[Rfam]
RNA sequence: AACGACCGGUCGGACACCUGUGUCCGGCCACCAAGUGGAGGCUCCGAUCUCCCACCUGCUCGGCCCCCGGCCGAGGGGUCCCCGGUCAGAUGGCAUGAGUCGGCGCCCAGGCGUCGGCGGUAAUGCCGUCCGAUGCGCCCCGCGGAAUAUCGCGGCGGUGCUCCCGGUUGUGAGGAGCCCCGCCUGUGUUCCGGUCCGGGGCGUUUUUU
Numbered sequence: 001a002a003c004g005a006c007c008g009g010u011c012g013g014a015c016a017c018c019u020g021u022g023u024c025c026g027g028c029c030a031c032c033a034a035g036u037g038g039a040g041g042c043u044c045c046g047a048u049c050u051c052c053c054a055c056c057u058g059c060u061c062g063g064c065c066c067c068c069g070g071c072c073g074a075g076g077g078g079u080c081c082c083c084g085g086u087c088a089g090a091u092g093g094c095a096u097g098a099g100u101c102g103g104c105g106c107c108c109a110g111g112c113g114u115c116g117g118c119g120g121u122a123a124u125g126c127c128g129u130c131c132g133a134u135g136c137g138c139c140c141c142g143c144g145g146a147a148u149a150u151c152g153c154g155g156c157g158g159u160g161c162u163c164c165c166g167g168u169u170g171u172g173a174g175g176a177g178c179c180c181c182g183c184c185u186g187u188g189u190u191c192c193g194g195u196c197c198g199g200g201g202c203g204u205u206u207u208u209u
Stems, first nucleotide, its partner, number of pairs: 004087006012025002026080004032058002035055004039050002059075007089130005095121001100120003104116001137202006143194001144191002151188003154184005160178005
Rfam assigns this 209-nucleotide sequence from Actinacidiphila guanduensis to the family "Streptomyces RNA 1601". The match comes from Rfam's covariance-model search (141 bits). Rfam's curators write: Identified by deep sequencing of transcriptome at the end of exponential growth phase. Appears longer on northern blot than sequencing transcript. Streptomyces specific. Rfam classes the family as a small RNA. For this family Rfam cites "Deep sequencing-based identification of small non-coding RNAs in Streptomyces coelicolor" (Vockenhuber et al., RNA Biol, 2011). Taxonomically the source falls in Actinacidiphila (Bacteria, Bacillati, Actinomycetota, Actinomycetes).